mir-3492 microRNA precursor family: a 78-nucleotide sequence from Schistosoma japonicum. The organism belongs to Schistosoma, within Eukaryota. The family's consensus secondary structure was predicted with RNAalifold.
RNA sequence: AGCUUUCUGUAUCGGUGCUGUGAUUUCGUCAGUCACCAGGCCAUCAGCACUGAUGAGACUCCCCAGAUACGUGAAAAG
Dot-bracket structure: ..((((.((((((...(..(.(.(((((((.....................)))))))).))...))))))...))))